[Rfam]
RNA: SAM riboswitch aptamer (S box leader)
Organism: Chloroflexales bacterium ZM16-3
RNA sequence: AACUCAUCUAGAUGGGCAGAGGGACUGGCCCUGUGAAGCCCGGCAACCACCCUGAGUAAUGAUGAAUGCUGAAUGCUGAAUGCUAAAUUCAACAUUCACAGUUCAAUAUUCCAAAGGUAACGGUGCUAAUUCCUGCGGCGGUAUUUUUUUUGCCCGCCGAAAGAUGAGAG
Numbered sequence: 001a002a003c004u005c006a007u008c009u010a011g012a013u014g015g016g017c018a019g020a021g022g023g024a025c026u027g028g029c030c031c032u033g034u035g036a037a038g039c040c041c042g043g044c045a046a047c048c049a050c051c052c053u054g055a056g057u058a059a060u061g062a063u064g065a066a067u068g069c070u071g072a073a074u075g076c077u078g079a080a081u082g083c084u085a086a087a088u089u090c091a092a093c094a095u096u097c098a099c100a101g102u103u104c105a106a107u108a109u110u111c112c113a114a115a116g117g118u119a120a121c122g123g124u125g126c127u128a129a130u131u132c133c134u135g136c137g138g139c140g141g142u143a144u145u146u147u148u149u150u151u152g153c154c155c156g157c158c159g160a161a162a163g164a165u166g167a168g169a170g
Base pairs, nucleotide, nucleotide: 003168004167005166006165007164008163014041015040016039017038021031022030023029025135027133028132042127043126044125045124047123048122051117052116131162136159137158138157139156140155141154